Record summary: Shown here is a 308-nucleotide RNA sequence from Beauveria bassiana, a member of the family "Fungal signal recognition particle RNA". It scores 137 bits against the family's covariance model. Its Rfam clan is "SRP clan". Rfam classes the family as a non-coding RNA gene. The literature on the family includes a 2002 paper in Curr Opin Struct Biol by Wild et al., "Towards the structure of the mammalian signal recognition particle".

[Rfam]
RNA sequence: GGCUGUAGUGGCUCAACUGGGAAACUUCUCGUACUUUUCUCAUCUUGCAACCGCACCAAAUACCGUCAGAUCCCCCUCUGCGGCGCCCAGCCCGAACGCCGCGGUGGCCGCCCGCUCGCAUGGGCAACCUGCGAUUUGCCGGUACACAGGCAGCGUCAAACCUGCCCGCGGCCCUCAGCACUGGAGAUGACCCUUGAGGGAGGCUUCACUCUGCAGAGAACUCUCCCCCGUCGCGUGGCGGGCUGGAUUACGACCCGGAGGGGAAUUUUGGGCUGGUUGUGUGAGAAGGAGAAAUCAACCAAGUUAUU
Numbered sequence: 001g002g003c004u005g006u007a008g009u010g011g012c013u014c015a016a017c018u019g020g021g022a023a024a025c026u027u028c029u030c031g032u033a034c035u036u037u038u039c040u041c042a043u044c045u046u047g048c049a050a051c052c053g054c055a056c057c058a059a060a061u062a063c064c065g066u067c068a069g070a071u072c073c074c075c076c077u078c079u080g081c082g083g084c085g086c087c088c089a090g091c092c093c094g095a096a097c098g099c100c101g102c103g104g105u106g107g108c109c110g111c112c113c114g115c116u117c118g119c120a121u122g123g124g125c126a127a128c129c130u131g132c133g134a135u136u137u138g139c140c141g142g143u144a145c146a147c148a149g150g151c152a153g154c155g156u157c158a159a160a161c162c163u164g165c166c167c168g169c170g171g172c173c174c175u176c177a178g179c180a181c182u183g184g185a186g187a188u189g190a191c192c193c194u195u196g197a198g199g200g201a202g203g204c205u206u207c208a209c210u211c212u213g214c215a216g217a218g219a220a221c222u223c224u225c226c227c228c229c230g231u232c233g234c235g236u237g238g239c240g241g242g243c244u245g246g247a248u249u250a251c252g253a254c255c256c257g258g259a260g261g262g263g264a265a266u267u268u269u270g271g272g273c274u275g276g277u278u279g280u281g282u283g284a285g286a287a288g289g290a291g292a293a294a295u296c297a298a299c300c301a302a303g304u305u306a307u308u
Stems, first nucleotide, its partner, number of pairs: 001013003015305004020300002024295001026293004032287001034285003047280007056271005074262007082254001084252002087246008096236004101231004107143004112138001116134005122129002174178001183226005193218003200211003